[Rfam]
This 284-nucleotide part of an RNA from Plenodomus lingam belongs to the Rfam family "Eukaryotic large subunit ribosomal RNA".
Rfam's curators put it in the seed alignment.
For this family Rfam cites "Crystal structure of the ribosome at 5.5 A resolution" (Yusupov et al., Science, 2001).
RNA sequence: GAGUCUAAUAUCUAUGCAAGUGUUUAGGUGUUAAGCCUAGACGCGUAAUAAAAGUAAAUAGAGGUAGGAACCCUUUUAGGGUGCACUAUUAACCAAUCCUAAUGUCUUUAGAAGGAUUUAAGUAAGAGUAUAGCUAUUAGGACCUAAAAGAUAGUAAACUAUGCUUAAAUAGGGUAAAGCUAGAGGAAACUCUAGUAGAGGCUUGUAGCAGUUCUAACGUGCAAAUUAAUUAUUAAAUUUAGGUAUAGGGGCGAAAGACUAAUUAAACUAUCUAGUAGCUAGUU
Numbered sequence: 001g002a003g004u005c006u007a008a009u010a011u012c013u014a015u016g017c018a019a020g021u022g023u024u025u026a027g028g029u030g031u032u033a034a035g036c037c038u039a040g041a042c043g044c045g046u047a048a049u050a051a052a053a054g055u056a057a058a059u060a061g062a063g064g065u066a067g068g069a070a071c072c073c074u075u076u077u078a079g080g081g082u083g084c085a086c087u088a089u090u091a092a093c094c095a096a097u098c099c100u101a102a103u104g105u106c107u108u109u110a111g112a113a114g115g116a117u118u119u120a121a122g123u124a125a126g127a128g129u130a131u132a133g134c135u136a137u138u139a140g141g142a143c144c145u146a147a148a149a150g151a152u153a154g155u156a157a158a159c160u161a162u163g164c165u166u167a168a169a170u171a172g173g174g175u176a177a178a179g180c181u182a183g184a185g186g187a188a189a190c191u192c193u194a195g196u197a198g199a200g201g202c203u204u205g206u207a208g209c210a211g212u213u214c215u216a217a218c219g220u221g222c223a224a225a226u227u228a229a230u231u232a233u234u235a236a237a238u239u240u241a242g243g244u245a246u247a248g249g250g251g252c253g254a255a256a257g258a259c260u261a262a263u264u265a266a267a268c269u270a271u272c273u274a275g276u277a278g279c280u281a282g283u284u
Stems, first nucleotide, its partner, number of pairs: 005140006012133006020044003025039005048055002063090005070082003092123002095119002097116003103110002143282001150272006159248011170236001172204004179196007208233001210231002213229001216227002250260002